[Rfam]
RNA sequence: UCCACUGUGAGGUGGAAUCUGAAGGAAGUCUAAGGCAAAGUACUGCACCGAUGAACAAGAAGUAGCUAUAAGGCUGAGGGUAACUGGAUAAGGUUGCUUAACAAACUGAAGUCCAAUACUACUCGAAGUUACUCUCAGUAAAGCUGACGGUGACAUGGUACGAAAGUUAAUAUUC
Numbered sequence: 001u002c003c004a005c006u007g008u009g010a011g012g013u014g015g016a017a018u019c020u021g022a023a024g025g026a027a028g029u030c031u032a033a034g035g036c037a038a039a040g041u042a043c044u045g046c047a048c049c050g051a052u053g054a055a056c057a058a059g060a061a062g063u064a065g066c067u068a069u070a071a072g073g074c075u076g077a078g079g080g081u082a083a084c085u086g087g088a089u090a091a092g093g094u095u096g097c098u099u100a101a102c103a104a105a106c107u108g109a110a111g112u113c114c115a116a117u118a119c120u121a122c123u124c125g126a127a128g129u130u131a132c133u134c135u136c137a138g139u140a141a142a143g144c145u146g147a148c149g150g151u152g153a154c155a156u157g158g159u160a161c162g163a164a165a166g167u168u169a170a171u172a173u174u175c
Stems, first nucleotide, its partner, number of pairs: 001016006028175001031172002035167002040161006046152005063146005073139003077135001079133006086114004092107004

The family of this 175-nucleotide RNA from Limosilactobacillus vaginalis is "Group II catalytic intron D1-D4-3".
The literature on the family includes a 2001 paper in Trends Genet by Bonen and Vogel, "The ins and outs of group II introns".
The source organism's lineage runs through Bacteria, Bacillati, Bacillota, Lactobacillaceae and Limosilactobacillus vaginalis.
Rfam's curators put it in the seed alignment.